The record is a 98-nucleotide RNA sequence from Vagococcus fessus, which matches "Purine riboswitch aptamer" in Rfam. Clan: Purine riboswitches. From the family's description: Riboswitches are metabolite binding domains within certain messenger RNAs that serve as precision sensors for their corresponding targets.
[Rfam]
RNA sequence: ACAACAAAUGACAACUUAACUUAUAUAACGCUGAAAUAAGGUCGGCAGUCUCUACCCAGUACCGUAAAUACUGGACUAUAAGUAAAAAAUAGUGUGGG
Numbered sequence: 001a002c003a004a005c006a007a008a009u010g011a012c013a014a015c016u017u018a019a020c021u022u023a024u025a026u027a028a029c030g031c032u033g034a035a036a037u038a039a040g041g042u043c044g045g046c047a048g049u050c051u052c053u054a055c056c057c058a059g060u061a062c063c064g065u066a067a068a069u070a071c072u073g074g075a076c077u078a079u080a081a082g083u084a085a086a087a088a089a090u091a092g093u094g095u096g097g098g
Stems, first nucleotide, its partner, number of pairs: 019083007030046005056074006